[Rfam]
RNA sequence: CUCCCUGAGGAAUCUUGUUAAAAUGCAGAUUCUGAUUCAGUUGCUCUGAUGGGGGGUCUAAGAUUCUGCAUUUCUAACAAGUCUCAGGGGAUGCAGA
Numbered sequence: 001c002u003c004c005c006u007g008a009g010g011a012a013u014c015u016u017g018u019u020a021a022a023a024u025g026c027a028g029a030u031u032c033u034g035a036u037u038c039a040g041u042u043g044c045u046c047u048g049a050u051g052g053g054g055g056g057u058c059u060a061a062g063a064u065u066c067u068g069c070a071u072u073u074c075u076a077a078c079a080a081g082u083c084u085c086a087g088g089g090g091a092u093g094c095a096g097a
Stems, first nucleotide, its partner, number of pairs: 003090003009084003014081007021073003025069005031063003
A member of the RNA family "mir-544 microRNA precursor family" from Equus asinus, 97 nucleotides long. It scores 78 bits against the family's covariance model.